[Rfam]
RNA: Glycine riboswitch aptamer
RNA sequence: CUAUUCCCUGUGGGAGAGAUCGGGGCGAAAGCCCCGGCGCCGAAGGAGCAACCGCCCCGGAAACUCUCAGGCAGAAGGACCGCAGGGAAGAC
Numbered sequence: 001c002u003a004u005u006c007c008c009u010g011u012g013g014g015a016g017a018g019a020u021c022g023g024g025g026c027g028a029a030a031g032c033c034c035c036g037g038c039g040c041c042g043a044a045g046g047a048g049c050a051a052c053c054g055c056c057c058c059g060g061a062a063a064c065u066c067u068c069a070g071g072c073a074g075a076a077g078g079a080c081c082g083c084a085g086g087g088a089a090g091a092c
Base pairs, nucleotide, nucleotide: 006087007086008085009084010083011082012081013080020037021036022035023034039072040071041070042068043067046066047065048064052060053059
Dot-bracket structure: .....((((((((......((((..........)))).(((((..(((...((.....))...))))).))).......)))))))).....